[Rfam]
RNA: Xanthomonas sRNA sX9
Organism: Xanthomonas oryzae
RNA sequence: AUGUACCACUCGUACACGGCGGUUCCUCCGCGCCGUCCACCCCUGUGGGUCGCCGCUCUAAAGCUCUCAGCC
Numbered sequence: 001a002u003g004u005a006c007c008a009c010u011c012g013u014a015c016a017c018g019g020c021g022g023u024u025c026c027u028c029c030g031c032g033c034c035g036u037c038c039a040c041c042c043c044u045g046u047g048g049g050u051c052g053c054c055g056c057u058c059u060a061a062a063g064c065u066c067u068c069a070g071c072c
Base pairs, nucleotide, nucleotide: 002016003015004014005013006012020035021034022033023032025030043070044069045068047066048065049064